A member of the RNA family "Purine riboswitch aptamer" from Selenihalanaerobacter shriftii, 102 nucleotides long.
[Rfam]
RNA sequence: AAUAAUAUUAUCAAAAAAUCGCGUAUAAUUUCAAGAAUAAGGCUUGAUAGUUUCUACCGGCUAGCCGAAAACUGGCCGACUACGGGGUAGCAUGAUAACUAU
Numbered sequence: 001a002a003u004a005a006u007a008u009u010a011u012c013a014a015a016a017a018a019u020c021g022c023g024u025a026u027a028a029u030u031u032c033a034a035g036a037a038u039a040a041g042g043c044u045u046g047a048u049a050g051u052u053u054c055u056a057c058c059g060g061c062u063a064g065c066c067g068a069a070a071a072c073u074g075g076c077c078g079a080c081u082a083c084g085g086g087g088u089a090g091c092a093u094g095a096u097a098a099c100u101a102u
Stems, first nucleotide, its partner, number of pairs: 018088003022084004029049001031047005058078007

Annotation
Pairs were carried over by alignment from the consensus structure, which is taken from published work. The match comes from Rfam's covariance-model search (86 bits). The family has 133 seed sequences and 4,097 matches in Rfam 15.1.